TPP riboswitch aptamer (THI element): a 100-nucleotide RNA sequence from Halalkalibacter okhensis. Pairs were carried over by alignment from the consensus structure, which is taken from published work.
[Rfam]
RNA sequence: UGUAUCCACUAGGGGUGUCGAGUGACUGAGAGAGGGAAACCCUCAACUCUUAGAACCUGAUCUAGUUUAAACUAGCGUAGGGAAGUGGCUGUUAUUCAUG
Numbered sequence: 001u002g003u004a005u006c007c008a009c010u011a012g013g014g015g016u017g018u019c020g021a022g023u024g025a026c027u028g029a030g031a032g033a034g035g036g037a038a039a040c041c042c043u044c045a046a047c048u049c050u051u052a053g054a055a056c057c058u059g060a061u062c063u064a065g066u067u068u069a070a071a072c073u074a075g076c077g078u079a080g081g082g083a084a085g086u087g088g089c090u091g092u093u094a095u096u097c098a099u100g
Stems, first nucleotide, its partner, number of pairs: 006088005011050004017026003033043004056081004062075004